[Rfam]
RNA sequence: CGUAGUAAUCCCUUUACAACGGAUCGUGAGGCACGUACCUGCCUCUGAAAGGAUGAACAA
Numbered sequence: 001c002g003u004a005g006u007a008a009u010c011c012c013u014u015u016a017c018a019a020c021g022g023a024u025c026g027u028g029a030g031g032c033a034c035g036u037a038c039c040u041g042c043c044u045c046u047g048a049a050a051g052g053a054u055g056a057a058c059a060a
Stems, first nucleotide, its partner, number of pairs: 010052002013049004028045006
Notes: msiK RNA: a 60-nucleotide RNA from Bifidobacterium oedipodis. The base pairs follow the family's consensus structure, which is taken from published work. The match comes from Rfam's covariance-model search (62 bits). By type it is a cis-regulatory element. Lineage of the source: Bacteria > Actinomycetes > Bifidobacteriales > Bifidobacteriaceae > Bifidobacterium.